[Rfam]
RNA sequence: UUUUAGGUGAAUUGAUUAUGUUUGGAUACAUUCAAUUAAAAGUAAUUUUUACGAGUUGAUAUUGUUUGGGUAG
Numbered sequence: 001u002u003u004u005a006g007g008u009g010a011a012u013u014g015a016u017u018a019u020g021u022u023u024g025g026a027u028a029c030a031u032u033c034a035a036u037u038a039a040a041a042g043u044a045a046u047u048u049u050u051a052c053g054a055g056u057u058g059a060u061a062u063u064g065u066u067u068g069g070g071u072a073g
Base pairs, nucleotide, nucleotide: 011060012059013058014057015056016055017054020052021051024048025047026046027045030043031042032041

About this RNA: The family of this 73-nucleotide RNA sequence from Medicago truncatula is "MIR5272 microRNA precursor family". Taxonomically the source falls in Medicago (Eukaryota, Viridiplantae, Tracheophyta, Fabales). Rfam links the family to the GO terms RISC complex and miRNA-mediated post-transcriptional gene silencing. It scores 66 bits against the family's covariance model.